[Rfam]
RNA sequence: AGGGGAGGCCGGACCCUGGGCUGUGUCCUGGCGCCCAGUGCUCCCAGGGCCUGCGCUGUUGGAUUCGCGCUCCCCCCCCCAGCCCCCU
Numbered sequence: 001a002g003g004g005g006a007g008g009c010c011g012g013a014c015c016c017u018g019g020g021c022u023g024u025g026u027c028c029u030g031g032c033g034c035c036c037a038g039u040g041c042u043c044c045c046a047g048g049g050c051c052u053g054c055g056c057u058g059u060u061g062g063a064u065u066c067g068c069g070c071u072c073c074c075c076c077c078c079c080c081a082g083c084c085c086c087c088u
Base pairs, nucleotide, nucleotide: 002086003085004084005083008080011076012075018073019072020071022069023068024067025066026063027062028061029058030057031056032055033054034053038051040050041049042048